[Rfam]
RNA sequence: UCGACGUGGACAUCCAGUCAGUUUCCUGGCUCUGUCCUGGUGGCGUAUGGGAGCGUAGCUUUCGAGCUGAGACGUACAUUCCCGUUCCACAACGUCGUAGACUAAGCUCCGCCCCCCGGCCGUCAGGUCGGCGAGGGCCGCGGCGUCCUGCAUAUUCCUACAUCUUCCCAGAGUCCUUUGGGGCCGUGACUGGGGGGCUAAACCAUGCGGUGCACAUGU
Numbered sequence: 001u002c003g004a005c006g007u008g009g010a011c012a013u014c015c016a017g018u019c020a021g022u023u024u025c026c027u028g029g030c031u032c033u034g035u036c037c038u039g040g041u042g043g044c045g046u047a048u049g050g051g052a053g054c055g056u057a058g059c060u061u062u063c064g065a066g067c068u069g070a071g072a073c074g075u076a077c078a079u080u081c082c083c084g085u086u087c088c089a090c091a092a093c094g095u096c097g098u099a100g101a102c103u104a105a106g107c108u109c110c111g112c113c114c115c116c117c118g119g120c121c122g123u124c125a126g127g128u129c130g131g132c133g134a135g136g137g138c139c140g141c142g143g144c145g146u147c148c149u150g151c152a153u154a155u156u157c158c159u160a161c162a163u164c165u166u167c168c169c170a171g172a173g174u175c176c177u178u179u180g181g182g183g184c185c186g187u188g189a190c191u192g193g194g195g196g197g198c199u200a201a202a203c204c205a206u207g208c209g210g211u212g213c214a215c216a217u218g219u
Stems, first nucleotide, its partner, number of pairs: 002097006008037005014029003021026001040090004049083004053077001055075002059069001148210006164197006173184004

This 219-nucleotide sequence from Liparis tanakae belongs to the Rfam family "Small nucleolar RNA SNORA73 family". The source organism's lineage runs through Eukaryota, Teleostomi, Actinopterygii, Percomorphaceae and Liparis. The base pairs follow the family's consensus structure, which is taken from published work. A reference for the family is Enright et al. (1996), "5'ETS rRNA processing facilitated by four small RNAs: U14, E3, U17, and U3", RNA.